[Rfam]
RNA sequence: ACAAGAACAAUAACAAGCACUGCAAAAGACAAUAAAAAUAAGACGAAUCGGCUCACGCACAAUAAGAACAAGACGGCGGAGGCGCAGCUAACUGAUUCUUUUGGAGAGGAGUUGUACUUGGGGCUUGCCCCACAACCAGGCAGAGAACAACAAAAACUGCACUCAAGCAGGGCCUGAACUGGUUGGAUCAUCUGAUCAUUGCAACAUCGGCGACCAAAGCAAUCCGUUUGCUCUUCACUCCCGAUUCGGGAGACCGUCCACACGCUUUGCGGCUUUGUGGACAGGGCAUCAACAAAAACAAGAAGCCCGACAAAAAAACAAUAAGAGCACGCAACUACUUCUUGGGGAGCUUCGGCUCCCCUUGUAGUUUCUCCCCCCUGCGUACCCCGCGUUU
Numbered sequence: 001a002c003a004a005g006a007a008c009a010a011u012a013a014c015a016a017g018c019a020c021u022g023c024a025a026a027a028g029a030c031a032a033u034a035a036a037a038a039u040a041a042g043a044c045g046a047a048u049c050g051g052c053u054c055a056c057g058c059a060c061a062a063u064a065a066g067a068a069c070a071a072g073a074c075g076g077c078g079g080a081g082g083c084g085c086a087g088c089u090a091a092c093u094g095a096u097u098c099u100u101u102u103g104g105a106g107a108g109g110a111g112u113u114g115u116a117c118u119u120g121g122g123g124c125u126u127g128c129c130c131c132a133c134a135a136c137c138a139g140g141c142a143g144a145g146a147a148c149a150a151c152a153a154a155a156a157c158u159g160c161a162c163u164c165a166a167g168c169a170g171g172g173c174c175u176g177a178a179c180u181g182g183u184u185g186g187a188u189c190a191u192c193u194g195a196u197c198a199u200u201g202c203a204a205c206a207u208c209g210g211c212g213a214c215c216a217a218a219g220c221a222a223u224c225c226g227u228u229u230g231c232u233c234u235u236c237a238c239u240c241c242c243g244a245u246u247c248g249g250g251a252g253a254c255c256g257u258c259c260a261c262a263c264g265c266u267u268u269g270c271g272g273c274u275u276u277g278u279g280g281a282c283a284g285g286g287c288a289u290c291a292a293c294a295a296a297a298a299c300a301a302g303a304a305g306c307c308c309g310a311c312a313a314a315a316a317a318a319c320a321a322u323a324a325g326a327g328c329a330c331g332c333a334a335c336u337a338c339u340u341c342u343u344g345g346g347g348a349g350c351u352u353c354g355g356c357u358c359c360c361c362u363u364g365u366a367g368u369u370u371c372u373c374c375c376c377c378c379u380g381c382g383u384a385c386c387c388c389g390c391g392u393u394u
Base pairs, nucleotide, nucleotide: 049084050083052081053080054079099219100218101217102216103215113212114211115210133185134184135183136182137181138180139179157170158169159168160167238252239251240250241249279375280374283372284308285307286306287305327368328367344361345360346359347358348357349356350355

Notes:
Rfam assigns this 394-nucleotide RNA from Pseudomonas sp. SDI to the family "Pseudomonas sRNA CrcZ". Pairs were carried over by alignment from the consensus structure, which was predicted with WAR. A reference for the family is Livny et al. (2006), "Identification of 17 Pseudomonas aeruginosa sRNAs and prediction of sRNA-encoding genes in 10 diverse pathogens using the bioinformatic tool sRNAPredict2", Nucleic Acids Res. Taxonomically the source falls in Pseudomonas (Bacteria, Pseudomonadota, Gammaproteobacteria, Pseudomonadales).